[Rfam]
Rfam assigns this 80-nucleotide sequence from Gymnodraco acuticeps to the family "Small nucleolar RNA SNORD74".
The match comes from Rfam's covariance-model search (53 bits).
The family has 22 seed sequences and 929 matches in Rfam 15.1.
The source organism's lineage runs through Eukaryota, Opisthokonta, Actinopterygii, Neopterygii and Gymnodraco.
On this family, see Galardi et al., Mol Cell Biol 2002: "Purified box C/D snoRNPs are able to reproduce site-specific 2'-O-methylation of target RNA in vitro".
The family's consensus secondary structure was predicted with PFOLD.
RNA sequence: CCCGUGUAUUUAUGAUUUUAAAAUGUUGGUAGGGACAACUGAAUAUUUGUGUAGAAUGCCAACCUCUCUGACUGCACGGG
Numbered sequence: 001c002c003c004g005u006g007u008a009u010u011u012a013u014g015a016u017u018u019u020a021a022a023a024u025g026u027u028g029g030u031a032g033g034g035a036c037a038a039c040u041g042a043a044u045a046u047u048u049g050u051g052u053a054g055a056a057u058g059c060c061a062a063c064c065u066c067u068c069u070g071a072c073u074g075c076a077c078g079g080g
Stems, first nucleotide, its partner, number of pairs: 001080005
Dot-bracket structure: (((((......................................................................)))))